[Rfam]
RNA: mir-3572 microRNA precursor family
Organism: Rattus norvegicus
RNA sequence: GGCCAGUUUGGGGGACAGGGCAAGGUGGGCAGUAGCUGACAGCCUGUUUACACUUGCCCUUUUUUCCCCAGGCUAUAGUUCGGUUG
Dot-bracket structure: (((((((((((((((.((((((((((((((((..(((...))))))))))).))))))))...))))))))))).......)))).